[Rfam]
RNA sequence: CACACGUUACUCGGAUAACUGUGGUAAUUCCAGAGCUAAUACAUGCAAACGAGCGCUGACCGGUCCUCUCUCGGGGGGGCCGGGAUGCGUGCAUUUAUCAGACCCAAAACCCACCCGGGGGGACCCGCGAGGGUUUCCCCCGGCCCUUUGGUGACUCUAGAUAACCUCGGGUCGAUCGCGCGCCCACCGCGGCGGCGACGUCUCAUUCGAAUGUCUGCCCUAUCAGCUGUCGAUGGUAGCAUAGGGGGCUACCAUGGUGACCACGGGUAACGGGGAAUCAGGGUUCGAUUCCGGAGAGGGAGCCUGAGAAAUGGCUACCACAUCCAAGGAAGGCAGCAGGCGCGCAAAUUACCCAUUACCGACACGGUGAGGUAGUGACGAAAAAUAACGAUGCAGGUCUCUUUCGAGGCCCUGUAAUCGGAAUGAACGUAUCCUAAACACAUGGGUGAGGACCCAUUGGAGGGCAAGUCUGGUGCCAGCAGCCGCGGUAAUUCCAGCUCCAAUAGCGUAUAUUAAAUUUGCUG
Numbered sequence: 001c002a003c004a005c006g007u008u009a010c011u012c013g014g015a016u017a018a019c020u021g022u023g024g025u026a027a028u029u030c031c032a033g034a035g036c037u038a039a040u041a042c043a044u045g046c047a048a049a050c051g052a053g054c055g056c057u058g059a060c061c062g063g064u065c066c067u068c069u070c071u072c073g074g075g076g077g078g079g080c081c082g083g084g085a086u087g088c089g090u091g092c093a094u095u096u097a098u099c100a101g102a103c104c105c106a107a108a109a110c111c112c113a114c115c116c117g118g119g120g121g122g123a124c125c126c127g128c129g130a131g132g133g134u135u136u137c138c139c140c141c142g143g144c145c146c147u148u149u150g151g152u153g154a155c156u157c158u159a160g161a162u163a164a165c166c167u168c169g170g171g172u173c174g175a176u177c178g179c180g181c182g183c184c185c186a187c188c189g190c191g192g193c194g195g196c197g198a199c200g201u202c203u204c205a206u207u208c209g210a211a212u213g214u215c216u217g218c219c220c221u222a223u224c225a226g227c228u229g230u231c232g233a234u235g236g237u238a239g240c241a242u243a244g245g246g247g248g249c250u251a252c253c254a255u256g257g258u259g260a261c262c263a264c265g266g267g268u269a270a271c272g273g274g275g276a277a278u279c280a281g282g283g284u285u286c287g288a289u290u291c292c293g294g295a296g297a298g299g300g301a302g303c304c305u306g307a308g309a310a311a312u313g314g315c316u317a318c319c320a321c322a323u324c325c326a327a328g329g330a331a332g333g334c335a336g337c338a339g340g341c342g343c344g345c346a347a348a349u350u351a352c353c354c355a356u357u358a359c360c361g362a363c364a365c366g367g368u369g370a371g372g373u374a375g376u377g378a379c380g381a382a383a384a385a386u387a388a389c390g391a392u393g394c395a396g397g398u399c400u401c402u403u404u405c406g407a408g409g410c411c412c413u414g415u416a417a418u419c420g421g422a423a424u425g426a427a428c429g430u431a432u433c434c435u436a437a438a439c440a441c442a443u444g445g446g447u448g449a450g451g452a453c454c455c456a457u458u459g460g461a462g463g464g465c466a467a468g469u470c471u472g473g474u475g476c477c478a479g480c481a482g483c484c485g486c487g488g489u490a491a492u493u494c495c496a497g498c499u500c501c502a503a504u505a506g507c508g509u510a511u512a513u514u515a516a517a518u519u520u521g522c523u524g
Stems, first nucleotide, its partner, number of pairs: 004206001006202001008200001013042001019035002022032003219267003226258003233255008271293004275286004298319002301316003321332001323330002349374001351373003357369005398451004457503006470497004479486002
RNA: Microsporidia small subunit ribosomal RNA, nucleotides 1 to 524